[Rfam]
Nucleotides: 201
Stems, first nucleotide, its partner, number of pairs: 011185004018028003029180006039048002049165003057139003142159004
Number, partner (000 for none) and nucleotide at each position: 001000u002000a003000u004000u005000c006000u007000u008000u009000a010000u011185c012184g013183c014182u015000u016000a017000a018028u019027u020026c021000a022000a023000u024000a025000u026020g027019a028018a029180g030179c031178g032177g033176g034175g035000g036000a037000c038000c039048c040047g041000a042000g043000u044000c045000a046000c047040c048039g049165g050164g051163g052000u053000g054000a055000a056000u057139c058138c059137u060000c061000a062000u063000c064000g065000c066000u067000g068000c069000a070000a071000g072000g073000u074000u075000c076000u077000u078000g079000a080000u081000c082000u083000a084000a085000a086000a087000g088000g089000c090000a091000u092000a093000g094000g095000c096000c097000u098000g099000g100000g101000c102000g103000c104000c105000u106000a107000a108000g109000c110000u111000u112000a113000a114000g115000g116000g117000u118000g119000g120000a121000c122000c123000c124000u125000u126000g127000u128000g129000u130000g131000c132000g133000g134000a135000u136000a137059a138058g139057g140000u141000a142159g143158g144157g145156c146000u147000a148000c149000u150000u151000c152000c153000a154000u155000c156145g157144c158143c159142c160000g161000a162000a163051u164050c165049c166000g167000u168000c169000a170000g171000c172000u173000a174000a175034c176033c177032u178031c179030g180029u181000a182014a183013g184012c185011g186000u187000a188000a189000u190000g191000g192000g193000a194000g195000a196000g197000g198000a199000u200000g201000a
The record is a 201-nucleotide RNA from Rossellomorea aquimaris, which matches "c-di-AMP riboswitch aptamer (ydaO/yuaA leader)" in Rfam. The base pairs follow the family's consensus structure. NCBI's taxonomy places the organism under Bacteria, Bacillati, Bacillota, Bacilli, Rossellomorea.